[Rfam]
RNA sequence: GGGAGGAGGCUGGAUCCUGGGCUGUGUCUCUGGCGCCCUGUGCUCCCAGGCCUGUGCUGUUGGAUUCGCGCUCCUGGCUGGGCAGCCCCCU
Numbered sequence: 001g002g003g004a005g006g007a008g009g010c011u012g013g014a015u016c017c018u019g020g021g022c023u024g025u026g027u028c029u030c031u032g033g034c035g036c037c038c039u040g041u042g043c044u045c046c047c048a049g050g051c052c053u054g055u056g057c058u059g060u061u062g063g064a065u066u067c068g069c070g071c072u073c074c075u076g077g078c079u080g081g082g083c084a085g086c087c088c089c090c091u
Stems, first nucleotide, its partner, number of pairs: 001091003005087002009083002011080003016077002019074003023070004027064002030062001031059006040052001042051003
Dot-bracket structure: (((.((..(((((..((.(((.((((((.(((((((...(.(((....)))).))))))..)))..)))).))).))))).))..)).)))
RNA: mir-8799 microRNA precursor family
Organism: Nyctereutes procyonoides